[Rfam]
RNA: Yersinia sRNA 155(RyfD)
RNA sequence: UAAGACGGUCCAGAAUGAUGUAUUUUUCACCAAAAUAUUUAGGUCAUUAAACUUGAAAAUUUGAGGGAUGACCUCAUUUAAUCUCCAGUAGCAAUUUGACCUGAAUGGGGGAAUUAUGCGUCUGGAUCGUCUUAC
Numbered sequence: 001u002a003a004g005a006c007g008g009u010c011c012a013g014a015a016u017g018a019u020g021u022a023u024u025u026u027u028c029a030c031c032a033a034a035a036u037a038u039u040u041a042g043g044u045c046a047u048u049a050a051a052c053u054u055g056a057a058a059a060u061u062u063g064a065g066g067g068a069u070g071a072c073c074u075c076a077u078u079u080a081a082u083c084u085c086c087a088g089u090a091g092c093a094a095u096u097u098g099a100c101c102u103g104a105a106u107g108g109g110g111g112a113a114u115u116a117u118g119c120g121u122c123u124g125g126a127u128c129g130u131c132u133u134a135c
Base pairs, nucleotide, nucleotide: 002133003132004131005130006129007128008127009126010125011124012123017122018121019120020119021118022117026113027037029036052065053064054063055062056061067078068077069076070075082111083110085109086108088106089105